[Rfam]
The record is a 68-nucleotide sequence from Mycolicibacterium madagascariense, which matches "ASdes TB sRNA" in Rfam. Lineage of the source: Bacteria > Bacillati > Actinomycetota > Mycobacteriaceae > Mycobacterium (subgen. Mycolicibacterium). Pairs were carried over by alignment from the consensus structure, which is taken from published work.

RNA sequence: AGCUCGAGCGGAUCGAUGGCGCGGGUGACCACGAGGUAGUCGCGCAGCGCGAUGCCGUGGCGGUUCUC
Numbered sequence: 001a002g003c004u005c006g007a008g009c010g011g012a013u014c015g016a017u018g019g020c021g022c023g024g025g026u027g028a029c030c031a032c033g034a035g036g037u038a039g040u041c042g043c044g045c046a047g048c049g050c051g052a053u054g055c056c057g058u059g060g061c062g063g064u065u066c067u068c
Stems, first nucleotide, its partner, number of pairs: 004063003011030001013028001016026002035056004040052005